[Rfam]
RNA sequence: CAGGCUUGCCUUUCAGGCAUCCUCUCCCAAGACUUUCACGGGGCCGGCAGCAAUGCUGGCCCCAUUUUUUUGUUCAUG
Numbered sequence: 001c002a003g004g005c006u007u008g009c010c011u012u013u014c015a016g017g018c019a020u021c022c023u024c025u026c027c028c029a030a031g032a033c034u035u036u037c038a039c040g041g042g043g044c045c046g047g048c049a050g051c052a053a054u055g056c057u058g059g060c061c062c063c064a065u066u067u068u069u070u071u072g073u074u075c076a077u078g
Base pairs, nucleotide, nucleotide: 008018009017010016011015040063041062042061043060044059045058046057047056048055
Rfam assigns this 78-nucleotide sequence from Novosphingobium aromaticivorans to the family "Makes More Granules Regulator RNA (mmgR)". Taxonomically the source falls in Novosphingobium (Bacteria, Pseudomonadota, Sphingomonadales, Sphingomonadaceae).